Description: The family of this 128-nucleotide sequence from Mus spicilegus is "Small Cajal body specific RNA 4". For this family Rfam cites "Cajal body-specific small nuclear RNAs: a novel class of 2'-O-methylation and pseudouridylation guide RNAs" (Darzacq et al., EMBO J, 2002). The family is grouped with related families in Rfam's "SCARNA4 clan". Its family is annotated with Cajal body, RNA processing and nucleolus in the Gene Ontology. From the family's description: scaRNAs are a specific class of small nuclear RNAs which localise to the Cajal bodies and guide the modification of RNA polymerase II transcribed spliceosomal RNAs U1, U2, U4, U5 and U12. ACA26 belongs to the H/ACA box class of guide RNAs as it has the predicted hairpin-hinge-hairpin-tail structure, conserved H/ACA-box motifs and is found associated with GAR1.

RNA sequence: ACUGGAGGAUCAAGAAGGCUGAGUCUGAUGAAGCAAGACUUUGAUGAUACGCUCCUCCUAGACAAGGGGAUGGAGAGAGCAGCCUUUACUGGAGAAAGCCACAAGGCUCACUGUACUACCCAACAUUA
Numbered sequence: 001a002c003u004g005g006a007g008g009a010u011c012a013a014g015a016a017g018g019c020u021g022a023g024u025c026u027g028a029u030g031a032a033g034c035a036a037g038a039c040u041u042u043g044a045u046g047a048u049a050c051g052c053u054c055c056u057c058c059u060a061g062a063c064a065a066g067g068g069g070a071u072g073g074a075g076a077g078a079g080c081a082g083c084c085u086u087u088a089c090u091g092g093a094g095a096a097a098g099c100c101a102c103a104a105g106g107c108u109c110a111c112u113g114u115a116c117u118a119c120c121c122a123a124c125a126u127u128a
Stems, first nucleotide, its partner, number of pairs: 002061002004058006017045001019043001021041006067121003078112002081108006090101003